mir-575 microRNA precursor family: a 79-nucleotide RNA from Homo sapiens. On this family, see Baev et al., Comput Biol Chem 2009: "Computational identification of novel microRNA homologs in the chimpanzee genome". It is one of the family's seed sequences.

RNA sequence: UCAGCCCUGCCACUGGCUUAUGUCAUGACCUUGGGCUACUCAGGCUGUCUGCACAAUGAGCCAGUUGGACAGGAGCAGU
Numbered sequence: 001u002c003a004g005c006c007c008u009g010c011c012a013c014u015g016g017c018u019u020a021u022g023u024c025a026u027g028a029c030c031u032u033g034g035g036c037u038a039c040u041c042a043g044g045c046u047g048u049c050u051g052c053a054c055a056a057u058g059a060g061c062c063a064g065u066u067g068g069a070c071a072g073g074a075g076c077a078g079u
Base pairs, nucleotide, nucleotide: 004076005075006073007072008071009070010068011067012066013064014063015062016061017060018059019058020057021056022054023053024051025050027049028048029047030044031043032042033041034040035039